[Rfam]
RNA sequence: GCGUUGUCCAAAGUAUCGUUGUCGCAGCUUCCGCACAGAGAGUCAACUUCUCUGAUGACUCUCAAAUUUCAGCUGUGGGGAAAGUCCCCGGAGAUACAGAGCAUAUCCUCGAUUCACUUACGGAAAGCGGCUGGCUCUGAGCACGACAGCUCUGGAUCGAGGAUGUCCGAGAAUCGCAUUGCCUUGCGCUGAAUGGGAGUUCUACAACUACCUUCGCGUUUGGGCUCCGUCUUGUGACACUCUGUUGCUUGUGCUCGAUGACCGACUGGCCUUGAAAGGACGUCAAGGCGCGAAGAUAUGAGCGUUUUGGUGUUUGUCAGUUUGGUUGGAGAGACAGCAUUUUGUUGCUCAUAGCUACAGUUAUACGAUGGUGGACUCGUUUGUUCGAGUCUUUCAACUCAAUGGGGCUCACUCUUGGUCAACG
Numbered sequence: 001g002c003g004u005u006g007u008c009c010a011a012a013g014u015a016u017c018g019u020u021g022u023c024g025c026a027g028c029u030u031c032c033g034c035a036c037a038g039a040g041a042g043u044c045a046a047c048u049u050c051u052c053u054g055a056u057g058a059c060u061c062u063c064a065a066a067u068u069u070c071a072g073c074u075g076u077g078g079g080g081a082a083a084g085u086c087c088c089c090g091g092a093g094a095u096a097c098a099g100a101g102c103a104u105a106u107c108c109u110c111g112a113u114u115c116a117c118u119u120a121c122g123g124a125a126a127g128c129g130g131c132u133g134g135c136u137c138u139g140a141g142c143a144c145g146a147c148a149g150c151u152c153u154g155g156a157u158c159g160a161g162g163a164u165g166u167c168c169g170a171g172a173a174u175c176g177c178a179u180u181g182c183c184u185u186g187c188g189c190u191g192a193a194u195g196g197g198a199g200u201u202c203u204a205c206a207a208c209u210a211c212c213u214u215c216g217c218g219u220u221u222g223g224g225c226u227c228c229g230u231c232u233u234g235u236g237a238c239a240c241u242c243u244g245u246u247g248c249u250u251g252u253g254c255u256c257g258a259u260g261a262c263c264g265a266c267u268g269g270c271c272u273u274g275a276a277a278g279g280a281c282g283u284c285a286a287g288g289c290g291c292g293a294a295g296a297u298a299u300g301a302g303c304g305u306u307u308u309g310g311u312g313u314u315u316g317u318c319a320g321u322u323u324g325g326u327u328g329g330a331g332a333g334a335c336a337g338c339a340u341u342u343u344g345u346u347g348c349u350c351a352u353a354g355c356u357a358c359a360g361u362u363a364u365a366c367g368a369u370g371g372u373g374g375a376c377u378c379g380u381u382u383g384u385u386c387g388a389g390u391c392u393u394u395c396a397a398c399u400c401a402a403u404g405g406g407g408c409u410c411a412c413u414c415u416u417g418g419u420c421a422a423c424g
Base pairs, nucleotide, nucleotide: 002424003423004422005421006420008418009417010416011415014370015369016368017367018366019365022078023077024076025075026074027073028072038063039062040061041060042059043058044057083409084408086407087406088405089404100136101135102134137154139152140151141150142149268327272325273324274323275322276321279318280317281316288315290313291312298308300306301305371394373392374391375390376389377388378387379386